[Rfam]
RNA sequence: AAUCUGUCACAACGGCUUCCUGGCGUGGCAGUGAAAUCCAAUGGAGCG
Number, nucleotide and partner (000 for none) at each position: 001a000002a000003u000004c031005u030006g029007u028008c027009a026010c025011a000012a000013c022014g021015g047016c046017u045018u000019c044020c043021u014022g013023g000024c000025g010026u009027g008028g007029c006030a005031g004032u000033g000034a000035a000036a000037u000038c000039c000040a000041a000042u000043g020044g019045a017046g016047c015048g000
The record is a 48-nucleotide RNA sequence from Roseovarius litorisediminis, which matches "SAM/SAH riboswitch aptamer" in Rfam. Gene Ontology terms of the family: S-adenosylmethionine metabolic process and regulation of gene expression.